Rfam assigns this 121-nucleotide RNA from Strigamia maritima to the family "U4atac minor spliceosomal RNA". The family has 61 seed sequences and 1,648 matches in Rfam 15.1. Rfam classes the family as a spliceosomal small nuclear RNA. Rfam's curators write: U4atac is an essential component of the minor U12-type spliceosome complex which is required for removal of the rarer class of eukaryotic introns (AT-AC, U12-type). On this family, see Marz et al., J Mol Evol 2008: "Evolution of spliceosomal snRNA genes in metazoan animals".
[Rfam]
RNA sequence: ACCGUCGUUGUCUUGGGUGAGAGCCAUUGAUUAAUGAACGUAUGUGAAAUCAAUGCUGCUGACGCCAAUAUUGACAUUAUUAUCGCAUCGGUCCUUGUGACUGGGUGCAAUUUUUGGAUCC
Numbered sequence: 001a002c003c004g005u006c007g008u009u010g011u012c013u014u015g016g017g018u019g020a021g022a023g024c025c026a027u028u029g030a031u032u033a034a035u036g037a038a039c040g041u042a043u044g045u046g047a048a049a050u051c052a053a054u055g056c057u058g059c060u061g062a063c064g065c066c067a068a069u070a071u072u073g074a075c076a077u078u079a080u081u082a083u084c085g086c087a088u089c090g091g092u093c094c095u096u097g098u099g100a101c102u103g104g105g106u107g108c109a110a111u112u113u114u115u116g117g118a119u120c121c
Stems, first nucleotide, its partner, number of pairs: 005020004009015001021059001023057001026054007038045002085108005093099001